[Rfam]
RNA sequence: GUUUCAGACGGACUCUUGUGGGGUUGAGGU
Numbered sequence: 001g002u003u004u005c006a007g008a009c010g011g012a013c014u015c016u017u018g019u020g021g022g023g024u025u026g027a028g029g030u
Base pairs, nucleotide, nucleotide: 011025012024013023014022015021